Rfam assigns this 89-nucleotide RNA from Diaphorina citri to the family "mir-46/mir-47/mir-281 microRNA precursor family".
It scores 62 bits against the family's covariance model.
Rfam 15.1 lists 307 matches to the family in 262 species.
Pairs were carried over by alignment from the consensus structure, which was predicted with RNAalifold.
RNA sequence: AGGCUCGGACUUUCAAGAGAGCUAUCUUUCGACAGUGAUACAUUUUAACAUUUGACUGUCAUGGAGUUGCUCUCUUAAAAGACGAACCU
Numbered sequence: 001a002g003g004c005u006c007g008g009a010c011u012u013u014c015a016a017g018a019g020a021g022c023u024a025u026c027u028u029u030c031g032a033c034a035g036u037g038a039u040a041c042a043u044u045u046u047a048a049c050a051u052u053u054g055a056c057u058g059u060c061a062u063g064g065a066g067u068u069g070c071u072c073u074c075u076u077a078a079a080a081g082a083c084g085a086a087c088c089u
Stems, first nucleotide, its partner, number of pairs: 015076004020071003025065003031060003035056002